[Rfam]
RNA sequence: AUCAGGGCUAGGCCGACGGGCCGAAAAGGGAGGUGCCACCUUACUCCCCUGCCCUGAGUCAGCAUAAAGGUGG
Number, nucleotide and partner (000 for none) at each position: 001a000002u057003c056004a055005g054006g053007g052008c051009u000010a000011g022012g021013c020014c019015g000016a000017c000018g000019g014020g013021c012022c011023g000024a000025a000026a000027a000028g048029g047030g046031a045032g044033g000034u000035g000036c073037c072038a071039c070040c069041u068042u000043a000044c032045u031046c030047c029048c028049c000050u000051g008052c007053c006054c005055u004056g003057a002058g000059u000060c000061a000062g000063c000064a000065u000066a000067a000068a041069g040070g039071u038072g037073g036

The family of this 73-nucleotide sequence is "int-alpA RNA".
From the family's description: Acidobacteria (1 example), Planctomycetes (1 example), Proteobacteria.
Rfam classes the family as a small RNA.